[Rfam]
RNA: mir-36 microRNA precursor family
Organism: Caenorhabditis brenneri
Nucleotides: 100
Base pairs, nucleotide, nucleotide: 016090017089019087020086021085022084024082025081026080027079029077030076031075032074033073034072036070039068041066042065043064044063045062046061
Number, partner (000 for none) and nucleotide at each position: 001000u002000u003000c004000u005000a006000c007000g008000g009000a010000c011000g012000u013000c014000a015000a016090u017089g018000a019087a020086c021085c022084u023000u024082u025081g026080u027079c028000a029077u030076u031075u032074c033073c034072c035000u036070c037000g038000g039068c040000g041066g042065u043064g044063a045062u046061g047000u048000u049000u050000c051000a052000u053000g054000c055000a056000g057000c058000g059000a060000a061046u062045a063044u064043c065042a066041c067000c068039g069000g070036g071000u072034g073033g074032g075031a076030a077029a078000c079027g080026g081025c082024a083000a084022a085021g086020g087019u088000c089017c090016g091000a092000c093000u094000u095000c096000u097000c098000c099000g100000u